[Rfam]
RNA sequence: GCCCUGUGGUUGCUGGAGGCUGUCUUGCUGGUACAGUUCUCCAGUGGAUACAAUGGGCUAGAGAAACCCUGUGAUGUAUGCAUGGGAGCUGUUUCUUCUCGGCAGCUGCCAUAGCUCAGUCAUUGGUACACUG
Numbered sequence: 001g002c003c004c005u006g007u008g009g010u011u012g013c014u015g016g017a018g019g020c021u022g023u024c025u026u027g028c029u030g031g032u033a034c035a036g037u038u039c040u041c042c043a044g045u046g047g048a049u050a051c052a053a054u055g056g057g058c059u060a061g062a063g064a065a066a067c068c069c070u071g072u073g074a075u076g077u078a079u080g081c082a083u084g085g086g087a088g089c090u091g092u093u094u095c096u097u098c099u100c101g102g103c104a105g106c107u108g109c110c111a112u113a114g115c116u117c118a119g120u121c122a123u124u125g126g127u128a129c130a131c132u133g
Stems, first nucleotide, its partner, number of pairs: 001058004007050002010047008019037005069125001071123005080115002082112004087107007
RNA: Small nucleolar RNA SNORA84